The record is a 52-nucleotide sequence, which matches "ffh sRNA" in Rfam. The family's RNA type in Rfam is small RNA. For this family Rfam cites "Identification of candidate structured RNAs in the marine organism 'Candidatus Pelagibacter ubique'" (Meyer et al., BMC Genomics, 2009).
[Rfam]
RNA sequence: CCCUCUUUGGAUCUACAUCCGUCAGCGUUGUACGCCCGCGGGUGCCAUUACG
Numbered sequence: 001c002c003c004u005c006u007u008u009g010g011a012u013c014u015a016c017a018u019c020c021g022u023c024a025g026c027g028u029u030g031u032a033c034g035c036c037c038g039c040g041g042g043u044g045c046c047a048u049u050a051c052g
Stems, first nucleotide, its partner, number of pairs: 016044007025035004